[Rfam]
RNA sequence: GGGUGUCCUUUUGGGGCAGGAUUACGUUGGUCGGGCCGCCAACG
Numbered sequence: 001g002g003g004u005g006u007c008c009u010u011u012u013g014g015g016g017c018a019g020g021a022u023u024a025c026g027u028u029g030g031u032c033g034g035g036c037c038g039c040c041a042a043c044g
Base pairs, nucleotide, nucleotide: 005017006016007015008014009013025044026043027042028041029040030039031038
Annotation
Rfam assigns this 44-nucleotide RNA from Devosia soli to the family "nhaA-I RNA". The family's RNA type in Rfam is riboswitch. The organism belongs to Devosia, within Bacteria. Acidobacteria, Alphaproteobacteria, Betaproteobacteria and Gammaproteobacteria, Verrucomicrobia, cand. division NC10. A search with the family's covariance model found it, with a score of 45 bits.